[Rfam]
RNA sequence: GGCCUCCCUCUGUGGGGUGAUCAAUCAGGGGCUCUGGAUUGAUCACCCCACAGAGGGAGGCC
Numbered sequence: 001g002g003c004c005u006c007c008c009u010c011u012g013u014g015g016g017g018u019g020a021u022c023a024a025u026c027a028g029g030g031g032c033u034c035u036g037g038a039u040u041g042a043u044c045a046c047c048c049c050a051c052a053g054a055g056g057g058a059g060g061c062c
Stems, first nucleotide, its partner, number of pairs: 001062026028035002
Source information: This 62-nucleotide RNA sequence from Cnephaeus nilssonii belongs to the Rfam family "mir-9242 microRNA precursor family".